Source information: SAH (S-adenosyl-L-homocysteine) riboswitch aptamer: a 75-nucleotide sequence from Ramlibacter pinisoli. A reference for the family is Wang et al. (2008), "Riboswitches that sense S-adenosylhomocysteine and activate genes involved in coenzyme recycling", Mol Cell. NCBI's taxonomy places the organism under Bacteria, Pseudomonadati, Pseudomonadota, Comamonadaceae, Ramlibacter. The match comes from Rfam's covariance-model search (56 bits). Rfam 15.1 lists 1,354 matches to the family in 1,132 species.

RNA sequence: AAUCCCAAGGAGCGUUGCAGCGGGGCGGCCCAGCCGCCGCGUCAGGCUUGGGAUGCACAACGGCGCUCACCUAGC
Numbered sequence: 001a002a003u004c005c006c007a008a009g010g011a012g013c014g015u016u017g018c019a020g021c022g023g024g025g026c027g028g029c030c031c032a033g034c035c036g037c038c039g040c041g042u043c044a045g046g047c048u049u050g051g052g053a054u055g056c057a058c059a060a061c062g063g064c065g066c067u068c069a070c071c072u073a074g075c
Stems, first nucleotide, its partner, number of pairs: 002054007021041002024038005